Source information
Shown here is an 86-nucleotide RNA from Equus caballus, a member of the family "mir-149 microRNA precursor family". Lineage of the source: Eukaryota > Amniota > Laurasiatheria > Perissodactyla > Equus. Rfam's curators put it in the seed alignment. The family has 13 seed sequences and 122 matches in Rfam 15.1. Its family is annotated with RISC complex and miRNA-mediated post-transcriptional gene silencing in the Gene Ontology. On this family, see Lagos-Quintana et al., Curr Biol 2002: "Identification of tissue-specific microRNAs from mouse".
RNA sequence: GCCGGCGCCCAGGCUCUGGCUCCGUGUCUUCACUCCCGUGUGUGUCCGAGGAGGGAGGGAGGGACGGGGGCUGUGCUGGGGCUGCC
Numbered sequence: 001g002c003c004g005g006c007g008c009c010c011a012g013g014c015u016c017u018g019g020c021u022c023c024g025u026g027u028c029u030u031c032a033c034u035c036c037c038g039u040g041u042g043u044g045u046c047c048g049a050g051g052a053g054g055g056a057g058g059g060a061g062g063g064a065c066g067g068g069g070g071c072u073g074u075g076c077u078g079g080g081g082c083u084g085c086c
Base pairs, nucleotide, nucleotide: 007082008081009080010079012077013076014075016073018071020069021068022067023066024065025064027062028061029060030059031058033057034056035055036054037053